[Rfam]
RNA sequence: GGCCGUGCGGCUGAUGACCACGCUGCUGCUGAGACUCUGUGAUGCUCAGUCUGAAGUAAACGCGCUGACGCACGGCGG
Dot-bracket structure: ....((((((..(....)..).......(((((...........)))))...................))))).....
Numbered sequence: 001g002g003c004c005g006u007g008c009g010g011c012u013g014a015u016g017a018c019c020a021c022g023c024u025g026c027u028g029c030u031g032a033g034a035c036u037c038u039g040u041g042a043u044g045c046u047c048a049g050u051c052u053g054a055a056g057u058a059a060a061c062g063c064g065c066u067g068a069c070g071c072a073c074g075g076c077g078g
Stems, first nucleotide, its partner, number of pairs: 005073005010021001013018001029049005
A member of the RNA family "Small nucleolar RNA U105B" from Chinchilla lanigera, 78 nucleotides long. The family's RNA type in Rfam is C/D-box small nucleolar RNA. It scores 69 bits against the family's covariance model. Its Rfam clan is "SNORD105 clan".